[Rfam]
RNA: Potassium channel RNA editing signal
Organism: Canis lupus
RNA sequence: GUAGGUUACGGCGACAUGCACCCGGUGACCAUAGGGGGCAAGAUCGUGGGGUCGCUCUGCGCCAUCGCUGGUGUCCUGACCAUCGCUCUGCCGGUGCCCGUGAUCGUUUCCAAC
Numbered sequence: 001g002u003a004g005g006u007u008a009c010g011g012c013g014a015c016a017u018g019c020a021c022c023c024g025g026u027g028a029c030c031a032u033a034g035g036g037g038g039c040a041a042g043a044u045c046g047u048g049g050g051g052u053c054g055c056u057c058u059g060c061g062c063c064a065u066c067g068c069u070g071g072u073g074u075c076c077u078g079a080c081c082a083u084c085g086c087u088c089u090g091c092c093g094g095u096g097c098c099c100g101u102g103a104u105c106g107u108u109u110c111c112a113a114c
Stems, first nucleotide, its partner, number of pairs: 001114002004111002008107004014101002018097004037077002040074001049063002